[Rfam]
RNA sequence: GUAAAAAUAUUGCGUAGGAUAUUGCUACGAAUGUGGGACAAGUGGCUUUCGAAGCAAAGGCCUACGCAAUAUUUUUUC
Numbered sequence: 001g002u003a004a005a006a007a008u009a010u011u012g013c014g015u016a017g018g019a020u021a022u023u024g025c026u027a028c029g030a031a032u033g034u035g036g037g038a039c040a041a042g043u044g045g046c047u048u049u050c051g052a053a054g055c056a057a058a059g060g061c062c063u064a065c066g067c068a069a070u071a072u073u074u075u076u077u078c
Base pairs, nucleotide, nucleotide: 003076004075005074006073007072008071009070010069011068012067013066014065016063017062018061022057023056024055025054026053028051029050030049031048

The family of this 78-nucleotide sequence from Caenorhabditis brenneri is "mir-242 microRNA precursor family". A reference for the family is de Wit et al. (2009), "Repertoire and evolution of miRNA genes in four divergent nematode species", Genome Res. It scores 55 bits against the family's covariance model.